[Rfam]
RNA sequence: GUCCAUUCCAAGGGGUGCUGCUUGGCUGAGAGUUUGCGUGUUUGCAAACAACCCUUAGAACCUGAUCCGGGUCGUUCCGGCGUAGGGAUGGACGCAAUUUCCCCU
Dot-bracket structure: ......((((((((..(((....)))......(((((......)))))...)))).....((((..((((......))))..))))..)))).............
RNA: TPP riboswitch aptamer (THI element)
Organism: Terasakiella magnetica